[Rfam]
RNA: Potassium channel RNA editing signal
Organism: Hypsibius exemplaris
RNA sequence: GUUGGCUAUGGAGAUAUCUGUCCAAAAGGUGCCAUCGGAAAACUGAUUGGAACUGCCUGUGCGGUUUCCGGCUUAAUUGCCAUCGCCCUGCCAGUCCCUGUUAUUGUGGCUAAU
Numbered sequence: 001g002u003u004g005g006c007u008a009u010g011g012a013g014a015u016a017u018c019u020g021u022c023c024a025a026a027a028g029g030u031g032c033c034a035u036c037g038g039a040a041a042a043c044u045g046a047u048u049g050g051a052a053c054u055g056c057c058u059g060u061g062c063g064g065u066u067u068c069c070g071g072c073u074u075a076a077u078u079g080c081c082a083u084c085g086c087c088c089u090g091c092c093a094g095u096c097c098c099u100g101u102u103a104u105u106g107u108g109g110c111u112a113a114u
Base pairs, nucleotide, nucleotide: 001114002113004111005110007108008107009106010105011104013102014101015100016099020095021094037077040074050062